[Rfam]
Shown here is a 228-nucleotide RNA sequence from Miscanthus lutarioriparius, a member of the family "MIR6217 microRNA precursor family". Gene Ontology terms of the family: RISC complex and miRNA-mediated post-transcriptional gene silencing. The source organism's lineage runs through Eukaryota, Embryophyta, Euphyllophyta, Andropogoneae and Miscanthus. A search with the family's covariance model found it, with a score of 182 bits.
RNA sequence: GAGCAGUAGUUCUAUAUAUUCUGUGGCCACUUUGAGUUACGAUAAUUACUAUGCUAAUUUACAAGAUUAUGGUAACUCCUUACUAUAUGAUUUACUAUAACGUUACGGUAAAUAUCCUCAUGUGUUAUAGUAACCCAACUAUCGUAAAUAUGUAUUCACUUUAUCGUAAAUUAGUAUAUAAAAUUAUCGUAAAUGGAGGUGGCUACAAAAUAACUUAUUCUGUAGCUG
Numbered sequence: 001g002a003g004c005a006g007u008a009g010u011u012c013u014a015u016a017u018a019u020u021c022u023g024u025g026g027c028c029a030c031u032u033u034g035a036g037u038u039a040c041g042a043u044a045a046u047u048a049c050u051a052u053g054c055u056a057a058u059u060u061a062c063a064a065g066a067u068u069a070u071g072g073u074a075a076c077u078c079c080u081u082a083c084u085a086u087a088u089g090a091u092u093u094a095c096u097a098u099a100a101c102g103u104u105a106c107g108g109u110a111a112a113u114a115u116c117c118u119c120a121u122g123u124g125u126u127a128u129a130g131u132a133a134c135c136c137a138a139c140u141a142u143c144g145u146a147a148a149u150a151u152g153u154a155u156u157c158a159c160u161u162u163a164u165c166g167u168a169a170a171u172u173a174g175u176a177u178a179u180a181a182a183a184u185u186a187u188c189g190u191a192a193a194u195g196g197a198g199g200u201g202g203c204u205a206c207a208a209a210a211u212a213a214c215u216u217a218u219u220c221u222g223u224a225g226c227u228g
Base pairs, nucleotide, nucleotide: 002227003226004225006223007222008221009220014215017212018211019210020209022207023206024205025204026203027202028201029200030199031198032197033196037192038191039190040189041188042187043186044185045184046183047182050178051177052176053175054174055173056172057171058170059169060168061167062166065165066164067163069161071159072157074155080147081146082145083144087142088141089140091138092137093132094131095130096129097128098127099126100125101124102123103122107117108116
Dot-bracket structure: .(((.((((....(..((((.((((((((((((...(((((((((((..(((((((((((((..(((.(.((.(.....((((...(((.(((((((((((((...((.......))....)))))))))))....)).))).)))).......).).).).))))))))))))))))...)))))))))))...)))))))))))).))))..)....)))).))).